[Rfam]
RNA sequence: GGAUGUGAGGGCGAUCUGGCUGCAACAUCUGUCACCCCAUUGAUCGCCAGGGUUGAUUCGGCUGAUCUGGCUGGCUAGGCGGGUGUCCCCUUCCUCCCUCACCGCUCCAUGUGCGUCCCUCCCGAAGCUGCGCGCUCAGUCGAAGAGGACGACCUUCCCCAAUAGAGGAGGACCAUUCUUCGGUCAAGGGUAUAAGAGUAGCUGAGCUCCCCUGCUAGAACCUCCAAACAAGCUCUCAAAAAAUUUUUUUUCAAUAAAAGCAUUUCAAAUAUUAUCCAACUCUCUGCUCAAAAUCCCCAAUG
Numbered sequence: 001g002g003a004u005g006u007g008a009g010g011g012c013g014a015u016c017u018g019g020c021u022g023c024a025a026c027a028u029c030u031g032u033c034a035c036c037c038c039a040u041u042g043a044u045c046g047c048c049a050g051g052g053u054u055g056a057u058u059c060g061g062c063u064g065a066u067c068u069g070g071c072u073g074g075c076u077a078g079g080c081g082g083g084u085g086u087c088c089c090c091u092u093c094c095u096c097c098c099u100c101a102c103c104g105c106u107c108c109a110u111g112u113g114c115g116u117c118c119c120u121c122c123c124g125a126a127g128c129u130g131c132g133c134g135c136u137c138a139g140u141c142g143a144a145g146a147g148g149a150c151g152a153c154c155u156u157c158c159c160c161a162a163u164a165g166a167g168g169a170g171g172a173c174c175a176u177u178c179u180u181c182g183g184u185c186a187a188g189g190g191u192a193u194a195a196g197a198g199u200a201g202c203u204g205a206g207c208u209c210c211c212c213u214g215c216u217a218g219a220a221c222c223u224c225c226a227a228a229c230a231a232g233c234u235c236u237c238a239a240a241a242a243a244u245u246u247u248u249u250u251u252c253a254a255u256a257a258a259a260g261c262a263u264u265u266c267a268a269a270u271a272u273u274a275u276c277c278a279a280c281u282c283u284c285u286g287c288u289c290a291a292a293a294u295c296c297c298c299a300a301u302g
Stems, first nucleotide, its partner, number of pairs: 001108003005102007013093002018090002025086009035074002037070003042067004046062003116171002118168004122139001124137002127135002140162001142160001147158003201273001203271001208267001213262003223254001228250001230248003